[Rfam]
RNA sequence: GGGCAUAUUGGAAGCCGUAAUCCAUGGGCGGUAGCGUG
Numbered sequence: 001g002g003g004c005a006u007a008u009u010g011g012a013a014g015c016c017g018u019a020a021u022c023c024a025u026g027g028g029c030g031g032u033a034g035c036g037u038g
Stems, first nucleotide, its partner, number of pairs: 009024004

This 38-nucleotide RNA from Shewanella frigidimarina belongs to the Rfam family "JUMPstart RNA". It is annotated as a cis-regulatory element. Taxonomically the source falls in Shewanella frigidimarina (Bacteria, Pseudomonadati, Shewanellaceae, Shewanella).